A member of the RNA family "mir-317 microRNA precursor family" from Callosobruchus maculatus, 86 nucleotides long. On this family, see Aravin et al., Dev Cell 2003: "The small RNA profile during Drosophila melanogaster development". The family's consensus secondary structure was predicted with RNAalifold. Rfam 15.1 lists 153 matches to the family in 144 species. The source organism's lineage runs through Eukaryota, Mandibulata, Insecta, Dicondylia and Callosobruchus.

RNA sequence: GUGAUUCGGUGCUGGGGCCCACCCUGUGUUUUCUGUGCUUAUAAACAAGUGAACACAGCUGGUGGUAUCUCAGUGCCUAAUCAUCC
Numbered sequence: 001g002u003g004a005u006u007c008g009g010u011g012c013u014g015g016g017g018c019c020c021a022c023c024c025u026g027u028g029u030u031u032u033c034u035g036u037g038c039u040u041a042u043a044a045a046c047a048a049g050u051g052a053a054c055a056c057a058g059c060u061g062g063u064g065g066u067a068u069c070u071c072a073g074u075g076c077c078u079a080a081u082c083a084u085c086c
Stems, first nucleotide, its partner, number of pairs: 008077005015071001016069002019065001021063003024058003028054001030052002